RNA sequence: GUGCCUUAAACUAAUGAGUAAGGAAAAUAUAGAGCUUUGGUAACGCUUAGCCAUGCUAUAAUCAGCGACCAUAUUUUUGAAGGGGCUCAGGUCGUCCCAGGCUGCUUGGACUACUUUUCCGAGCGGCUAGGUGAAGCGAUCUGCCCG
Numbered sequence: 001g002u003g004c005c006u007u008a009a010a011c012u013a014a015u016g017a018g019u020a021a022g023g024a025a026a027a028u029a030u031a032g033a034g035c036u037u038u039g040g041u042a043a044c045g046c047u048u049a050g051c052c053a054u055g056c057u058a059u060a061a062u063c064a065g066c067g068a069c070c071a072u073a074u075u076u077u078u079g080a081a082g083g084g085g086c087u088c089a090g091g092u093c094g095u096c097c098c099a100g101g102c103u104g105c106u107u108g109g110a111c112u113a114c115u116u117u118u119c120c121g122a123g124c125g126g127c128u129a130g131g132u133g134a135a136g137c138g139a140u141c142u143g144c145c146c147g
Stems, first nucleotide, its partner, number of pairs: 004023005034051003039046001054068001055066003083146004089142007097131002100128005106122005